[Rfam]
RNA: mir-9193 microRNA precursor family
RNA sequence: CAUGCACCAGUGGGGUCCCUCAGCCUGGCCUGUGCUCUCUCGCAAUCUGGGACCCUUUGGGGGAUGUCAGAGGCCUGCUGCAUGGAUUCAGCCCAAUCCCCGUAGGCCAGGCUGAGGGACUCCACCGGUGCAUG
Numbered sequence: 001c002a003u004g005c006a007c008c009a010g011u012g013g014g015g016u017c018c019c020u021c022a023g024c025c026u027g028g029c030c031u032g033u034g035c036u037c038u039c040u041c042g043c044a045a046u047c048u049g050g051g052a053c054c055c056u057u058u059g060g061g062g063g064a065u066g067u068c069a070g071a072g073g074c075c076u077g078c079u080g081c082a083u084g085g086a087u088u089c090a091g092c093c094c095a096a097u098c099c100c101c102g103u104a105g106g107c108c109a110g111g112c113u114g115a116g117g118g119a120c121u122c123c124a125c126c127g128g129u130g131c132a133u134g
Base pairs, nucleotide, nucleotide: 003132004131006129008127010125012123013122014121015120016119017118018117019116020115021114022113023112024111025110027108028107029106030105031104032103033102034101